This 132-nucleotide sequence from Haloechinothrix halophila belongs to the Rfam family "Glycine riboswitch aptamer". Lineage of the source: Bacteria > Bacillati > Actinomycetes > Pseudonocardiaceae > Haloechinothrix halophila. About the family: This family represents the bacterial glycine riboswitch. Glycine riboswitches usually consist of two metabolite-binding aptamers domains with similar structures in tandem. The pairing is the family consensus, mapped onto this sequence. Rfam links the family to the GO term glycine biosynthetic process.
RNA sequence: CCUCUGGAAAGCGGGCCCACGGCGACGACGCCACCGGCCCCGCCGAAGGUGCAAGCGCGCUGGGUCCGAUGUUGUCCAUCGGCACCGGUGAGUGAAGCUCUCAGGCGCCCGGCUAUCGGGCACGGACAGAGG
Dot-bracket structure: ((((((......((((....................)))).(((((..(.(...((...................................))....).))).)))....................))))))
Numbered sequence: 001c002c003u004c005u006g007g008a009a010a011g012c013g014g015g016c017c018c019a020c021g022g023c024g025a026c027g028a029c030g031c032c033a034c035c036g037g038c039c040c041c042g043c044c045g046a047a048g049g050u051g052c053a054a055g056c057g058c059g060c061u062g063g064g065u066c067c068g069a070u071g072u073u074g075u076c077c078a079u080c081g082g083c084a085c086c087g088g089u090g091a092g093u094g095a096a097g098c099u100c101u102c103a104g105g106c107g108c109c110c111g112g113c114u115a116u117c118g119g120g121c122a123c124g125g126a127c128a129g130a131g132g
Stems, first nucleotide, its partner, number of pairs: 001132006013040004042106003045102002049100001051098001055093002